RNA: Na+ riboswitch aptamer (DUF1646)
Organism: Kineothrix alysoides
RNA sequence: GGUUGGCAGUUAAAUAAACUGUUCAAGAUUUCAAGCUUAUUGGGUGGAGAGCU
Number, nucleotide and partner (000 for none) at each position: 001g000002g000003u026004u025005g024006g022007c021008a020009g019010u018011u017012a000013a000014a000015u000016a000017a011018a010019c009020u008021g007022u006023u000024c005025a004026a003027g000028a000029u000030u000031u000032c000033a000034a053035g052036c051037u050038u049039a000040u047041u000042g000043g000044g000045u000046g000047g040048a000049g038050a037051g036052c035053u034